[Rfam]
Nucleotides: 395
Base pairs, nucleotide, nucleotide: 007022008021009020010019011018028039029038030037050266051265052264053263054262056260057259061121062120063119064118065117066116071112072111073110074109075108122169123168129163131161136157137156138155139154140153173374175373176372177371178370179369268360269359270358271357274354380393381392382391383390384389
Number, partner (000 for none) and nucleotide at each position: 001000c002000c003000a004000c005000c006000u007022c008021g009020a010019u011018a012000g013000u014000u015000a016000g017000a018011u019010g020009u021008c022007g023000c024000c025000u026000a027000u028039a029038u030037u031000c032000g033000c034000g035000a036000g037030g038029a039028u040000a041000u042000a043000c044000g045000g046000a047000a048000a049000c050266a051265a052264u053263g054262g055000g056260u057259g058000a059000a060000u061121u062120g063119c064118a065117a066116g067000a068000a069000c070000a071112a072111u073110c074109u075108u076000u077000a078000u079000a080000u081000u082000a083000a084000c085000u086000a087000u088000a089000u090000u091000c092000c093000c094000a095000a096000c097000u098000a099000g100000u101000u102000g103000g104000g105000a106000a107000c108075a109074a110073g111072g112071u113000u114000a115000a116066c117065u118064u119063g120062c121061a122169g123168c124000g125000a126000a127000a128000a129163u130000a131161a132000u133000a134000c135000u136157a137156g138155u139154c140153u141000a142000u143000u144000a145000a146000a147000a148000a149000c150000a151000u152000a153140g154139g155138a156137c157136u158000u159000g160000u161131u162000c163129a164000a165000a166000a167000c168123g169122u170000u171000c172000a173374a174000c175373g176372a177371c178370u179369a180000a181000c182000g183000g184000g185000u186000g187000a188000a189000u190000u191000u192000g193000a194000c195000c196000c197000u198000c199000u200000c201000a202000u203000u204000c205000g206000u207000u208000u209000a210000u211000u212000c213000u214000g215000a216000u217000u218000c219000g220000a221000a222000a223000g224000a225000g226000u227000a228000u229000g230000g231000c232000g233000g234000a235000g236000a237000a238000g239000g240000a241000a242000a243000a244000u245000a246000a247000u248000c249000c250000u251000g252000a253000c254000a255000c256000g257000a258000g259057u260056g261000c262054c263053c264052a265051u266050u267000a268360a269359c270358u271357c272000a273000a274354u275000c276000g277000c278000u279000u280000a281000g282000u283000u284000u285000u286000u287000u288000u289000g290000u291000g292000a293000u294000u295000u296000u297000c298000u299000c300000c301000c302000c303000c304000g305000a306000u307000g308000a309000a310000g311000c312000g313000c314000c315000c316000a317000g318000c319000u320000c321000g322000g323000c324000u325000g326000g327000g328000c329000g330000a331000g332000g333000g334000c335000u336000a337000a338000a339000g340000c341000a342000a343000a344000a345000a346000c347000u348000u349000a350000a351000a352000a353000a354274a355000a356000g357271g358270a359269g360268u361000u362000a363000a364000a365000g366000a367000c368000a369179u370178a371177g372176u373175c374173u375000g376000a377000u378000c379000u380393u381392a382391g383390u384389a385000g386000u387000a388000g389384u390383a391382c392381u393380a394000a395000g